A member of the RNA family "U11 spliceosomal RNA" from Otolemur garnettii, 135 nucleotides long. NCBI's taxonomy places the organism under Eukaryota, Craniata, Eutheria, Galagidae, Otolemur. The family's consensus secondary structure is taken from published work. A search with the family's covariance model found it, with a score of 50 bits. The family's RNA type in Rfam is spliceosomal small nuclear RNA.

RNA sequence: CAAACGGGCCUCUCUGGUGAGUGGUACACACAGGGCAACUUGACUGCUCUUCACGUCCAAUUGGCAUCGAGAGAUUUCAGGAAGCAUAAUUUUUUGGUACCUGGGUAACUGGUGAUCAUUGGUCUCGGUGUCCUU
Number, nucleotide and partner (000 for none) at each position: 001c000002a000003a000004a000005c000006g000007g000008g085009c084010c000011u082012c081013u026014c000015u024016g000017g022018u000019g000020a000021g000022u017023g000024g015025u000026a013027c055028a000029c000030a000031c000032a050033g049034g048035g047036c046037a045038a000039c000040u000041u000042g000043a000044c000045u037046g036047c035048u034049c033050u032051u000052c000053a000054c000055g027056u079057c000058c000059a076060a075061u074062u073063g000064g000065c000066a000067u000068c000069g000070a000071g000072a000073g062074a061075u060076u059077u000078c000079a056080g000081g012082a011083a000084g009085c008086a000087u000088a000089a000090u000091u000092u000093u000094u000095u000096g000097g000098u000099a000100c000101c000102u000103g133104g132105g131106u130107a000108a129109c128110u127111g126112g125113u000114g124115a123116u122117c121118a000119u000120u000121g117122g116123u115124c114125u112126c111127g110128g109129u108130g106131u105132c104133c103134u000135u000